[Rfam]
Shown here is an 87-nucleotide RNA sequence from Thermanaeromonas sp. C210, a member of the family "Group II catalytic intron D1-D4-1". The match comes from Rfam's covariance-model search (64 bits). The organism belongs to Thermanaeromonas, within Bacteria.
RNA sequence: UAACCCGCACUGGAAGGUGCGAAUGAACUGGCAGGAGUCAGCAGAGGUCAUAGUACCCCCUUUUAGGCGUCAAAGAGGGGGAAGGAC
Number, nucleotide and partner (000 for none) at each position: 001u025002a024003a000004c000005c000006c021007g020008c019009a018010c017011u016012g000013g000014a000015a000016g011017g010018u009019g008020c007021g006022a000023a000024u002025g001026a000027a000028c000029u000030g000031g000032c000033a000034g000035g000036a000037g000038u045039c044040a000041g000042c000043a000044g039045a038046g000047g087048u086049c085050a000051u000052a000053g000054u000055a000056c080057c079058c078059c000060c077061u076062u075063u074064u073065a000066g000067g000068c000069g000070u000071c000072a000073a064074a063075g062076a061077g060078g058079g057080g056081g000082a000083a000084g000085g049086a048087c047